Annotation
The record is a 93-nucleotide RNA sequence from Comamonas antarctica, which matches "SAH (S-adenosyl-L-homocysteine) riboswitch aptamer" in Rfam.
[Rfam]
RNA sequence: ACCCCCAAGGAGCGUUGCAGCGGUCGGUCCGAUCCAUCAUCGGACCCACUGUCAGGCUUGGGGUUCCGCUCUCCGCAACGACGCUCACCUGUU
Numbered sequence: 001a002c003c004c005c006c007a008a009g010g011a012g013c014g015u016u017g018c019a020g021c022g023g024u025c026g027g028u029c030c031g032a033u034c035c036a037u038c039a040u041c042g043g044a045c046c047c048a049c050u051g052u053c054a055g056g057c058u059u060g061g062g063g064u065u066c067c068g069c070u071c072u073c074c075g076c077a078a079c080g081a082c083g084c085u086c087a088c089c090u091g092u093u
Base pairs, nucleotide, nucleotide: 003063004062005061006060007059008058021051022050023049024048026046027045028044029043030042031041032040033039
Dot-bracket structure: ..((((((............((((.((((((((.....)))))))).))))......))))))..............................
Notes
On this family, see Wang et al., Mol Cell 2008: "Riboswitches that sense S-adenosylhomocysteine and activate genes involved in coenzyme recycling". NCBI's taxonomy places the organism under Bacteria, Pseudomonadati, Burkholderiales, Comamonadaceae, Comamonas.